[Rfam]
RNA sequence: AAGUUAUCACGAAAGGCGGAGGGAAAGACCCGAUGAAACCUUAGCAACCCUUUAUCUUUAAAGAAGGUGCUACAUUCUACUUUAUACUGAAUUCAGUAUCUAAGAUAGAUAACAC
Numbered sequence: 001a002a003g004u005u006a007u008c009a010c011g012a013a014a015g016g017c018g019g020a021g022g023g024a025a026a027g028a029c030c031c032g033a034u035g036a037a038a039c040c041u042u043a044g045c046a047a048c049c050c051u052u053u054a055u056c057u058u059u060a061a062a063g064a065a066g067g068u069g070c071u072a073c074a075u076u077c078u079a080c081u082u083u084a085u086a087c088u089g090a091a092u093u094c095a096g097u098a099u100c101u102a103a104g105a106u107a108g109a110u111a112a113c114a115c
Stems, first nucleotide, its partner, number of pairs: 003113006013042004021031003026078003043071004048067002050063004075107001080104003

Rfam assigns this 115-nucleotide RNA sequence from Flavobacterium muglaense to the family "SAM riboswitch aptamer (S box leader)". Rfam links the family to the GO term regulation of gene expression. The family's consensus secondary structure is taken from published work. Lineage of the source: Bacteria > Pseudomonadati > Bacteroidota > Flavobacteriaceae > Flavobacterium.